This 149-nucleotide RNA from Candidatus Jettenia caeni belongs to the Rfam family "c-di-GMP-I riboswitch aptamer".
[Rfam]
RNA sequence: UUGUGACAAAGGCAAACCCUGAGUGAUCAGGGGACGCAAAGUAAAGGAUCUUGUAACAGUGGACAGUGUUCGUGAACAGUGUCAGUAUACGUAACAGACACUCUCGUUCAUAACUGGCACGAUAGAAAUAAGAUGGCCUUGCUACCGAA
Numbered sequence: 001u002u003g004u005g006a007c008a009a010a011g012g013c014a015a016a017c018c019c020u021g022a023g024u025g026a027u028c029a030g031g032g033g034a035c036g037c038a039a040a041g042u043a044a045a046g047g048a049u050c051u052u053g054u055a056a057c058a059g060u061g062g063a064c065a066g067u068g069u070u071c072g073u074g075a076a077c078a079g080u081g082u083c084a085g086u087a088u089a090c091g092u093a094a095c096a097g098a099c100a101c102u103c104u105c106g107u108u109c110a111u112a113a114c115u116g117g118c119a120c121g122a123u124a125g126a127a128a129u130a131a132g133a134u135g136g137c138c139u140u141g142c143u144a145c146c147g148a149a
Stems, first nucleotide, its partner, number of pairs: 012037002017032006040143004045139003048134007
Taxonomically the source falls in Candidatus Jettenia (Bacteria, Candidatus Brocadiia, Candidatus Brocadiales, Candidatus Brocadiaceae).
Its family is annotated with cyclic-di-GMP binding in the Gene Ontology.